The family of this 48-nucleotide sequence from Streptomyces candidus is "L31-Actinobacteria ribosomal protein leader". A search with the family's covariance model found it, with a score of 48 bits. Rfam classes the family as a cis-regulatory leader.
Nucleotides: 048
Base pairs, nucleotide, nucleotide: 003048004047005046007044008043009042010041015038016037017036018035020033021032022031023030
Number, partner (000 for none) and nucleotide at each position: 001000u002000c003048g004047g005046c006000c007044c008043c009042g010041g011000u012000u013000c014000a015038c016037g017036u018035a019000c020033c021032c022031g023030c024000a025000a026000a027000u028000c029000c030023g031022c032021g033020g034000a035018u036017g037016c038015g039000a040000c041010c042009c043008g044007g045000u046005g047004c048003c